[Rfam]
RNA: Actinobacteria sRNA Ms_IGR-5
RNA sequence: ACACGAGAAAGGAGGUGAUCCGGUCGAUGUACGACUACCGGACGCGUGAGGUGGCUGCGGCCUGAGAGCCGUCGCCCCGUGUGACGCCGGUUCGCCGGCUGAAAUCCCAGCAGUCACCCGGCCCGCGGGCUCGUCGGACUCGUCCGACCGACGCCCUUCCGCCCCGGCGGAGGGAGUCGCCCGCGGGCCGUCUGCU
Numbered sequence: 001a002c003a004c005g006a007g008a009a010a011g012g013a014g015g016u017g018a019u020c021c022g023g024u025c026g027a028u029g030u031a032c033g034a035c036u037a038c039c040g041g042a043c044g045c046g047u048g049a050g051g052u053g054g055c056u057g058c059g060g061c062c063u064g065a066g067a068g069c070c071g072u073c074g075c076c077c078c079g080u081g082u083g084a085c086g087c088c089g090g091u092u093c094g095c096c097g098g099c100u101g102a103a104a105u106c107c108c109a110g111c112a113g114u115c116a117c118c119c120g121g122c123c124c125g126c127g128g129g130c131u132c133g134u135c136g137g138a139c140u141c142g143u144c145c146g147a148c149c150g151a152c153g154c155c156c157u158u159c160c161g162c163c164c165c166g167g168c169g170g171a172g173g174g175a176g177u178c179g180c181c182c183g184c185g186g187g188c189c190g191u192c193u194g195c196u
Base pairs, nucleotide, nucleotide: 015058016057017056019054066100068099069098070097071096073094074093119190120189121188122187123186124185125184126183127182128181129180130179133152134151135150136149137148